[Rfam]
RNA: Small nucleolar RNA Z159/U59
Organism: Arachis hypogaea
RNA sequence: GUCUCUGAUGAGGAUCAAUUUCAGUAAAACUUUCGUUCUUCUGAUGAACAAUUCUGUGAGGAAUGCUUUUUUGGAGACCUGAACUGAGGAGAC
Numbered sequence: 001g002u003c004u005c006u007g008a009u010g011a012g013g014a015u016c017a018a019u020u021u022c023a024g025u026a027a028a029a030c031u032u033u034c035g036u037u038c039u040u041c042u043g044a045u046g047a048a049c050a051a052u053u054c055u056g057u058g059a060g061g062a063a064u065g066c067u068u069u070u071u072u073g074g075a076g077a078c079c080u081g082a083a084c085u086g087a088g089g090a091g092a093c
Base pairs, nucleotide, nucleotide: 003091004090005089006088